[Rfam]
RNA sequence: GGAGGUGACUGGAGUCUGGUGGCUUCCCUGGUCUUCAAAACUAUGGACACGCCGGCAAGGCGUGUGGUGGGUUCGAUUCCCAUCCACCUCC
Numbered sequence: 001g002g003a004g005g006u007g008a009c010u011g012g013a014g015u016c017u018g019g020u021g022g023c024u025u026c027c028c029u030g031g032u033c034u035u036c037a038a039a040a041c042u043a044u045g046g047a048c049a050c051g052c053c054g055g056c057a058a059g060g061c062g063u064g065u066g067g068u069g070g071g072u073u074c075g076a077u078u079c080c081c082a083u084c085c086a087c088c089u090c091c
Stems, first nucleotide, its partner, number of pairs: 001091007008083001011026006027045001029043004047065005068082004